Nucleotides: 289
Stems, first nucleotide, its partner, number of pairs: 001289004008282002012243002015240004021062005035050001037048001071273005080219004090104005105119005120215007139201006244261002247258004
Number, partner (000 for none) and nucleotide at each position: 001289g002288c003287a004286g005000u006000g007000c008282c009281a010000a011000u012243c013242u014000a015240g016239u017238g018237g019000g020000a021062g022061g023060g024059g025058u026000g027000u028000a029000c030000a031000a032000a033000c034000g035050a036000g037048g038000c039000a040000u041000a042000c043000a044000u045000u046000g047000u048037c049000a050035u051000u052000a053000u054000u055000u056000u057000c058025a059024c060023c061022u062021c063000g064000g065000g066000a067000a068000g069000g070000u071273c072272u073271g074270a075269g076000a077000u078000a079000a080219g081218a082217u083216u084000g085000u086000u087000g088000a089000a090104c091103g092102u093101u094100c095000u096000a097000g098000c099000c100094g101093g102092a103091c104090g105119g106118c107117a108116u109115c110000g111000u112000a113000a114000u115109g116108a117107u118106g119105c120215g121214u122213a123212c124211g125210a126209g127000a128000a129000c130000c131000a132000g133000a134000a135000a136000u137000a138000g139201c140200u141199u142198c143197g144196c145000a146000u147000u148000u149000u150000c151000c152000a153000a154000a155000a156000u157000g158000c159000c160000g161000a162000g163000g164000a165000c166000g167000c168000u169000u170000u171000u172000u173000u174000a175000a176000a177000a178000g179000c180000a181000g182000a183000g184000g185000c186000g187000a188000u189000u190000g191000a192000a193000a194000a195000c196144g197143u198142g199141a200140a201139g202000u203000u204000g205000a206000a207000a208000u209126c210125u211124c212123g213122u214121a215120u216083a217082a218081u219080c220000c221000g222000c223000a224000a225000g226000u227000u228000c229000a230000g231000u232000c233000u234000a235000a236000u237018c238017c239016a240015c241000a242013a243012g244261c245260c246000u247258g248257g249256u250255a251000g252000u253000c254000a255250u256249a257248c258247c259000u260245g261244g262000a263000a264000c265000u266000c267000a268000a269075u270074u271073c272072a273071g274000a275000c276000u277000a278000a279000u280000c281009u282008g283000a284000u285000g286004c287003u288002g289001c
Rfam assigns this 289-nucleotide sequence from Cyphomyrmex costatus to the family "Nuclear RNase P". The family is grouped with related families in Rfam's "RNaseP clan". The source organism's lineage runs through Eukaryota, Eumetazoa, Panarthropoda, Hexapoda and Cyphomyrmex. The literature on the family includes a 1998 paper in Annu Rev Biochem by Frank and Pace, "Ribonuclease P: unity and diversity in a tRNA processing ribozyme". Rfam describes the family as follows. Ribonuclease P (RNase P) is a ubiquitous endoribonuclease, found in archaea, bacteria and eukarya as well as chloroplasts and mitochondria. Its best characterised activity is the generation of mature 5'-ends of tRNAs by cleaving the 5'-leader elements of precursor-tRNAs.